[Rfam]
RNA: malK-I RNA
RNA sequence: UACAAUGCGUGUGCGGCUCUCCACCUUUCAGCCGUAUGCAGCUUAAAAAAGGAGGAAAAGGUAAGGCCCGUGGCUCGGGCUGCGGCAGUGUGGAGACCUGUCGCAAUGCGUGCGGCGAAAGCCCUCGCGAGCCUAUCCGCGCGGAGGCGGGAUAGGCAGAGCCGGAAAACAUGGCA
Numbered sequence: 001u002a003c004a005a006u007g008c009g010u011g012u013g014c015g016g017c018u019c020u021c022c023a024c025c026u027u028u029c030a031g032c033c034g035u036a037u038g039c040a041g042c043u044u045a046a047a048a049a050a051g052g053a054g055g056a057a058a059a060g061g062u063a064a065g066g067c068c069c070g071u072g073g074c075u076c077g078g079g080c081u082g083c084g085g086c087a088g089u090g091u092g093g094a095g096a097c098c099u100g101u102c103g104c105a106a107u108g109c110g111u112g113c114g115g116c117g118a119a120a121g122c123c124c125u126c127g128c129g130a131g132c133c134u135a136u137c138c139g140c141g142c143g144g145a146g147g148c149g150g151g152a153u154a155g156g157c158a159g160a161g162c163c164g165g166a167a168a169a170c171a172u173g174g175c176a
Stems, first nucleotide, its partner, number of pairs: 009039010066080004071164006081105008090097002108128003112125001114123003131157008140149003